[Rfam]
RNA sequence: AAGGUGGCUUACGCCACAGCCAUGGACUGGUUCAUAGCCGUGUGUUACGCUUUC
Numbered sequence: 001a002a003g004g005u006g007g008c009u010u011a012c013g014c015c016a017c018a019g020c021c022a023u024g025g026a027c028u029g030g031u032u033c034a035u036a037g038c039c040g041u042g043u044g045u046u047a048c049g050c051u052u053u054c
Stems, first nucleotide, its partner, number of pairs: 002053002006051003010047002013045002015042003019038002022035005

A member of the RNA family "Editing element of GABA-3 exon 9" from Diceros bicornis, 54 nucleotides long. By type it is a cis-regulatory element. Taxonomically the source falls in Diceros bicornis (Eukaryota, Metazoa, Theria, Diceros).